Photosynthesis regulatory RNA1: an 81-nucleotide RNA sequence from Nostoc sp. T09.

RNA sequence: UAAAAGUUUCCCUUUUUUAUCGCUGUAUCUAAUCGUCAUUUGGACUUCUCCCAUCAGCCUCGGUUAAUCACCGGGGUUUUU
Numbered sequence: 001u002a003a004a005a006g007u008u009u010c011c012c013u014u015u016u017u018u019a020u021c022g023c024u025g026u027a028u029c030u031a032a033u034c035g036u037c038a039u040u041u042g043g044a045c046u047u048c049u050c051c052c053a054u055c056a057g058c059c060u061c062g063g064u065u066a067a068u069c070a071c072c073g074g075g076g077u078u079u080u081u
Stems, first nucleotide, its partner, number of pairs: 057077008

Rfam links the family to the GO terms regulation of translation and regulation of photosynthesis. Pairs were carried over by alignment from the consensus structure, which was predicted with CMfinder. Formerly known as Syr1 discovered in Synechocystis sp PCC 6803, is a regulatory factor controlling photosynthetic functions. By type it is a small RNA. A reference for the family is Georg et al. (2014), "The small regulatory RNA SyR1/PsrR1 controls photosynthetic functions in cyanobacteria", Plant Cell. NCBI's taxonomy places the organism under Bacteria, Bacillati, Cyanobacteriota, Cyanophyceae, Nostoc.